[Rfam]
A member of the RNA family "Glycine riboswitch aptamer" from Bradyrhizobium sp. LTSP885, 107 nucleotides long.

RNA sequence: CGCGAUGAUGCGGGAGAGACUGAAGCAAGAGCAUUCGUGCUUUUGAGUUCGGCGCCGACGGAGCAACCGCCCCGGAAACUCUCAGGCAAAAGAACCGUGUCGUCAGG
Numbered sequence: 001c002g003c004g005a006u007g008a009u010g011c012g013g014g015a016g017a018g019a020c021u022g023a024a025g026c027a028a029g030a031g032c033a034u035u036c037g038u039g040c041u042u043u044u045g046a047g048u049u050c051g052g053c054g055c056c057g058a059c060g061g062a063g064c065a066a067c068c069g070c071c072c073c074g075g076a077a078a079c080u081c082u083c084a085g086g087c088a089a090a091a092g093a094a095c096c097g098u099g100u101c102g103u104c105a106g107g
Base pairs, nucleotide, nucleotide: 006102007101008100009099010098011097012096013095020052021051022050023049054087055086056085057083058082061081062080063079067075068074